[Rfam]
RNA: Purine riboswitch aptamer
Organism: Halalkalibacter suaedae
RNA sequence: UUUAUCAGAGAAAAUAACCUUCGUAUAUCCUAAGGAAGAUGGCCUAGGAGUCUCUACCAGAUGUCCAAUUACAAUCUGACUACGAAGGCAGGAUGAUGCUAG
Dot-bracket structure: .................((((((((....((.(((.......))).)).........(((((...........)))))..))))))))..............
Numbered sequence: 001u002u003u004a005u006c007a008g009a010g011a012a013a014a015u016a017a018c019c020u021u022c023g024u025a026u027a028u029c030c031u032a033a034g035g036a037a038g039a040u041g042g043c044c045u046a047g048g049a050g051u052c053u054c055u056a057c058c059a060g061a062u063g064u065c066c067a068a069u070u071a072c073a074a075u076c077u078g079a080c081u082a083c084g085a086a087g088g089c090a091g092g093a094u095g096a097u098g099c100u101a102g
Stems, first nucleotide, its partner, number of pairs: 018088008030048002033045003058078005